[Rfam]
RNA: Plastid-rps12 3UTR RNA
RNA sequence: GUUCCAUUGGUGAAAACCCAAUCACCUCAAUUUAAAAUUUUAGAUGAGAAAAAUUCCCCAUUGAUAGCAAUAUGGUAUUCAUAAAGCAGGGGAAAU
Numbered sequence: 001g002u003u004c005c006a007u008u009g010g011u012g013a014a015a016a017c018c019c020a021a022u023c024a025c026c027u028c029a030a031u032u033u034a035a036a037a038u039u040u041u042a043g044a045u046g047a048g049a050a051a052a053a054u055u056c057c058c059c060a061u062u063g064a065u066a067g068c069a070a071u072a073u074g075g076u077a078u079u080c081a082u083a084a085a086g087c088a089g090g091g092g093a094a095a096u
Stems, first nucleotide, its partner, number of pairs: 007021004056091003060082002063079004068074001